[Rfam]
RNA sequence: GUAUGCCUGAGGUAUCUAAUGCCUAGAUUUCAUUUACAUGGCUAGGUGUUUCGUAAAGAAGGCAGAAAGAAAACUAUAAGAACAGGUCUUGCGACACAGUUUGCUUUUUAUAAUAAGCUUGCUGUUACUUUAACCCUGUUCACAUUC
Numbered sequence: 001g002u003a004u005g006c007c008u009g010a011g012g013u014a015u016c017u018a019a020u021g022c023c024u025a026g027a028u029u030u031c032a033u034u035u036a037c038a039u040g041g042c043u044a045g046g047u048g049u050u051u052c053g054u055a056a057a058g059a060a061g062g063c064a065g066a067a068a069g070a071a072a073a074c075u076a077u078a079a080g081a082a083c084a085g086g087u088c089u090u091g092c093g094a095c096a097c098a099g100u101u102u103g104c105u106u107u108u109u110a111u112a113a114u115a116a117g118c119u120u121g122c123u124g125u126u127a128c129u130u131u132a133a134c135c136c137u138g139u140u141c142a143c144a145u146u147c
Stems, first nucleotide, its partner, number of pairs: 004064005018050009028040001032039001081140005096125005103118003